[Rfam]
Shown here is a 169-nucleotide sequence from Advenella mimigardefordensis, a member of the family "FMN riboswitch aptamer (RFN element)". It scores 103 bits against the family's covariance model. The base pairs follow the family's consensus structure, which is taken from published work.
RNA sequence: GCACGUUCUCAGGGCGGGGUGUAAUUCCCCACCGGCGGUAAUGGCGUACACAACACGCUAAGCCCGCGAGCGCUUGCCCGUACAGCAUUCCUUCACGUACGAACAAGGUCAGCAGAUCUGGUGUGAUUCCAGGGCCGACGGUUAUAGUCCGGAUAAAGAGAGAGCGGGA
Numbered sequence: 001g002c003a004c005g006u007u008c009u010c011a012g013g014g015c016g017g018g019g020u021g022u023a024a025u026u027c028c029c030c031a032c033c034g035g036c037g038g039u040a041a042u043g044g045c046g047u048a049c050a051c052a053a054c055a056c057g058c059u060a061a062g063c064c065c066g067c068g069a070g071c072g073c074u075u076g077c078c079c080g081u082a083c084a085g086c087a088u089u090c091c092u093u094c095a096c097g098u099a100c101g102a103a104c105a106a107g108g109u110c111a112g113c114a115g116a117u118c119u120g121g122u123g124u125g126a127u128u129c130c131a132g133g134g135c136c137g138a139c140g141g142u143u144a145u146a147g148u149c150c151g152g153a154u155a156a157a158g159a160g161a162g163a164g165c166g167g168g169a
Stems, first nucleotide, its partner, number of pairs: 004166007017029003031148002033137002035067004062135002070113002117133005139151003